RNA sequence: AGCUUAUCUAUGAUGUUUUAAAAAUAAAUGUCUGAACAUAUGACUUCAUUAGUGAUUUCAAUGUAUAACUGAGAUAAGCG
Numbered sequence: 001a002g003c004u005u006a007u008c009u010a011u012g013a014u015g016u017u018u019u020a021a022a023a024a025u026a027a028a029u030g031u032c033u034g035a036a037c038a039u040a041u042g043a044c045u046u047c048a049u050u051a052g053u054g055a056u057u058u059c060a061a062u063g064u065a066u067a068a069c070u071g072a073g074a075u076a077a078g079c080g
Stems, first nucleotide, its partner, number of pairs: 002079007

This 80-nucleotide RNA from Leptobrachium leishanense belongs to the Rfam family "Small nucleolar RNA SNORD72".
The pairing is the family consensus, mapped onto this sequence.
A reference for the family is Huttenhofer et al. (2001), "RNomics: an experimental approach that identifies 201 candidates for novel, small, non-messenger RNAs in mouse", EMBO J.
The match comes from Rfam's covariance-model search (96 bits).
Rfam describes the family as follows. snoRNA HBII-240 belongs to the CD family of snoRNAs.